[Rfam]
RNA sequence: GUUGCUUCACAACUGGAAGAAUGGCCUGUUGAUAACAGUUUGGUCAUCCUGUAGAGGGAAGCAUAGAUGAAUGGAAACACCAGCCAGCAUUAAACAGCACGAUGCAUAAUCACACUGCGUCGUGUUACCUGUCUUCUGGCACAUUU
Numbered sequence: 001g002u003u004g005c006u007u008c009a010c011a012a013c014u015g016g017a018a019g020a021a022u023g024g025c026c027u028g029u030u031g032a033u034a035a036c037a038g039u040u041u042g043g044u045c046a047u048c049c050u051g052u053a054g055a056g057g058g059a060a061g062c063a064u065a066g067a068u069g070a071a072u073g074g075a076a077a078c079a080c081c082a083g084c085c086a087g088c089a090u091u092a093a094a095c096a097g098c099a100c101g102a103u104g105c106a107u108a109a110u111c112a113c114a115c116u117g118c119g120u121c122g123u124g125u126u127a128c129c130u131g132u133c134u135u136c137u138g139g140c141a142c143a144u145u146u
Stems, first nucleotide, its partner, number of pairs: 003063006017050001019048001022046005083140005089134001096126003100122005

Shown here is a 146-nucleotide sequence from Brachypodium distachyon, a member of the family "small nucleolar RNA snoR137". For this family Rfam cites "Mining small RNA sequencing data: a new approach to identify small nucleolar RNAs in Arabidopsis" (Chen and Wu, Nucleic Acids Res, 2009). Its family is annotated with nucleolus and RNA processing in the Gene Ontology. The organism belongs to Brachypodium, within Eukaryota. The match comes from Rfam's covariance-model search (61 bits). The family's RNA type in Rfam is H/ACA-box small nucleolar RNA.